small nucleolar RNA snoR126: a 93-nucleotide RNA from Miscanthus lutarioriparius.
The base pairs follow the family's consensus structure, which was predicted with RNAalifold.
NCBI's taxonomy places the organism under Eukaryota, Embryophyta, Tracheophyta, Poales, Miscanthus.
The match comes from Rfam's covariance-model search (67 bits).
It is annotated as a C/D-box small nucleolar RNA.
RNA sequence: UGGCUGUGAUGACAAAAAUAUUCGUUUCUCGAUGCUGAGACUUGAUUUAUUCAAGGACCAUACUUUGAUGAGCUCUGUGCGUGUCUGAGUCAG
Numbered sequence: 001u002g003g004c005u006g007u008g009a010u011g012a013c014a015a016a017a018a019u020a021u022u023c024g025u026u027u028c029u030c031g032a033u034g035c036u037g038a039g040a041c042u043u044g045a046u047u048u049a050u051u052c053a054a055g056g057a058c059c060a061u062a063c064u065u066u067g068a069u070g071a072g073c074u075c076u077g078u079g080c081g082u083g084u085c086u087g088a089g090u091c092a093g
Stems, first nucleotide, its partner, number of pairs: 001092004